[Rfam]
RNA sequence: AUUGGGUGAAAUCAGUACCCUUUGCAGAAGGAGGGCUUGUACCCUGCCGAAAGGCUAAAACUUCCGGGUAUAUCGUUUGAAAUAUACCCUUUCCGGCAACGGGAACUUCCGAUGUAGUCAGCCGGACGCUGCUUGCAUGGUGAGCGAUUGUACGGUAGCUCAUUUCAUGGCUGGUACUACUAUGCAGUUAGAACCCGUACCCCACAAUAAUACUGUACGGAGGGAACCCCUUUUUAUGACGAGUG
Numbered sequence: 001a002u003u004g005g006g007u008g009a010a011a012u013c014a015g016u017a018c019c020c021u022u023u024g025c026a027g028a029a030g031g032a033g034g035g036c037u038u039g040u041a042c043c044c045u046g047c048c049g050a051a052a053g054g055c056u057a058a059a060a061c062u063u064c065c066g067g068g069u070a071u072a073u074c075g076u077u078u079g080a081a082a083u084a085u086a087c088c089c090u091u092u093c094c095g096g097c098a099a100c101g102g103g104a105a106c107u108u109c110c111g112a113u114g115u116a117g118u119c120a121g122c123c124g125g126a127c128g129c130u131g132c133u134u135g136c137a138u139g140g141u142g143a144g145c146g147a148u149u150g151u152a153c154g155g156u157a158g159c160u161c162a163u164u165u166c167a168u169g170g171c172u173g174g175u176a177c178u179a180c181u182a183u184g185c186a187g188u189u190a191g192a193a194c195c196c197g198u199a200c201c202c203c204a205c206a207a208u209a210a211u212a213c214u215g216u217a218c219g220g221a222g223g224g225a226a227c228c229c230c231u232u233u234u235u236a237u238g239a240c241g242a243g244u245g
Base pairs, nucleotide, nucleotide: 004044005043006042007041019031020030021029022028023027066089067088068087069086070085071084072083073082106223107222108221109220110219111218113217114180115179116178117177118176119173120172121171122170123169128136129135139164140163141162142161143160144159145158184216185215186214187213188212191202
About this RNA:
The family of this 245-nucleotide sequence from Lachnospiraceae bacterium 7_1_58FAA is "RT-2 RNA". The source organism's lineage runs through Bacteria, Bacillati, Bacillota, Lachnospirales and Lachnospiraceae. It is annotated as a small RNA.